[Rfam]
RNA sequence: AUGGGAAGCGCACGGCCGCAAAUCUGACUGUGCCGCUCACUCUUUCGAGCGGCUUGGGAUUGCGGAAGUGC
Numbered sequence: 001a002u003g004g005g006a007a008g009c010g011c012a013c014g015g016c017c018g019c020a021a022a023u024c025u026g027a028c029u030g031u032g033c034c035g036c037u038c039a040c041u042c043u044u045u046c047g048a049g050c051g052g053c054u055u056g057g058g059a060u061u062g063c064g065g066a067a068g069u070g071c
Stems, first nucleotide, its partner, number of pairs: 010071004016065006024058002032053007